[Rfam]
RNA sequence: CCGCAGAAGCCUCCCGGGCUAAUCUGAUUACAAUUCAUGAGGAACUAAGCCCCAAAGCUUCUGCUAGAUUCUUUUUGCCGUUUGUGUUGCAGGCUCGCCUUGUUCUGUAGGCUUUUCUGUGUCAAAAAAGCGGCUAAAUCU
Numbered sequence: 001c002c003g004c005a006g007a008a009g010c011c012u013c014c015c016g017g018g019c020u021a022a023u024c025u026g027a028u029u030a031c032a033a034u035u036c037a038u039g040a041g042g043a044a045c046u047a048a049g050c051c052c053c054a055a056a057g058c059u060u061c062u063g064c065u066a067g068a069u070u071c072u073u074u075u076u077g078c079c080g081u082u083u084g085u086g087u088u089g090c091a092g093g094c095u096c097g098c099c100u101u102g103u104u105c106u107g108u109a110g111g112c113u114u115u116u117c118u119g120u121g122u123c124a125a126a127a128a129a130g131c132g133g134c135u136a137a138a139u140c141u
Base pairs, nucleotide, nucleotide: 003064004063005062006061007060008059009058010057016052017051018050019049020048021046023043024042025041077134078133079132080131081130082129083128085124086123088121089120090119091118092117093116097112098111099110
This 141-nucleotide RNA sequence from Eutrema salsugineum belongs to the Rfam family "small nucleolar RNA snoR134". The family's RNA type in Rfam is H/ACA-box small nucleolar RNA. The family has 5 seed sequences and 792 matches in Rfam 15.1. The family's consensus secondary structure was predicted with RNAalifold. NCBI's taxonomy places the organism under Eukaryota, Magnoliopsida, rosids, Eutremeae, Eutrema. It scores 126 bits against the family's covariance model. Rfam links the family to the GO terms RNA processing and nucleolus.